The record is a 68-nucleotide RNA sequence from Mycobacterium saskatchewanense, which matches "ASdes TB sRNA" in Rfam. It is annotated as a small RNA. For this family Rfam cites "Identification of small RNAs in Mycobacterium tuberculosis" (Arnvig and Young, Mol Microbiol, 2009).
RNA sequence: AGUUCGACGGGGUCCACGGCGCGGGUCACCACCAGGUAGUCGCGCAGCGCAGUGCUGUGCCGGGCCUC
Numbered sequence: 001a002g003u004u005c006g007a008c009g010g011g012g013u014c015c016a017c018g019g020c021g022c023g024g025g026u027c028a029c030c031a032c033c034a035g036g037u038a039g040u041c042g043c044g045c046a047g048c049g050c051a052g053u054g055c056u057g058u059g060c061c062g063g064g065c066c067u068c
Stems, first nucleotide, its partner, number of pairs: 004063003008059002011030003016026002035056004040052001042050003